RNA: nadA riboswitch
RNA sequence: GCUUUCAACAUCCCCGUUCCGGGGUGCGGCUUUUCUUCUCAGAGGAGCUUCACGGCCGGCGCUGAAGGC
Numbered sequence: 001g002c003u004u005u006c007a008a009c010a011u012c013c014c015c016g017u018u019c020c021g022g023g024g025u026g027c028g029g030c031u032u033u034u035c036u037u038c039u040c041a042g043a044g045g046a047g048c049u050u051c052a053c054g055g056c057c058g059g060c061g062c063u064g065a066a067g068g069c
Stems, first nucleotide, its partner, number of pairs: 001069007013055001016062002019059004026051001028049009